[Rfam]
RNA sequence: GAGAAAUGAGGAUAUAUGUUUUUGUCUUAGUCUCAUGGUGAAGACUUCAGAUCCAACUCUGAUCUUACUCUAUAG
Numbered sequence: 001g002a003g004a005a006a007u008g009a010g011g012a013u014a015u016a017u018g019u020u021u022u023u024g025u026c027u028u029a030g031u032c033u034c035a036u037g038g039u040g041a042a043g044a045c046u047u048c049a050g051a052u053c054c055a056a057c058u059c060u061g062a063u064c065u066u067a068c069u070c071u072a073u074a075g
Stems, first nucleotide, its partner, number of pairs: 001066004